This 98-nucleotide RNA sequence from Hymenobacter sp. BRD67 belongs to the Rfam family "TPP riboswitch aptamer (THI element)". A search with the family's covariance model found it, with a score of 63 bits. The source organism's lineage runs through Bacteria, Bacteroidota, Cytophagia, Cytophagales and Hymenobacter. The base pairs follow the family's consensus structure, which is taken from published work.

RNA sequence: CAUAAACUUUCGGGGUGCUUUGCGCAAGCAAGGCUGAGACGAUACCCUCCGAACCUGAAACAGGUAAUGCUGGCGAAGGGAAAAGUACUGGACCGCUU
Numbered sequence: 001c002a003u004a005a006a007c008u009u010u011c012g013g014g015g016u017g018c019u020u021u022g023c024g025c026a027a028g029c030a031a032g033g034c035u036g037a038g039a040c041g042a043u044a045c046c047c048u049c050c051g052a053a054c055c056u057g058a059a060a061c062a063g064g065u066a067a068u069g070c071u072g073g074c075g076a077a078g079g080g081a082a083a084a085g086u087a088c089u090g091g092a093c094c095g096c097u098u
Stems, first nucleotide, its partner, number of pairs: 006086005012047003016042001017034005054079003061072003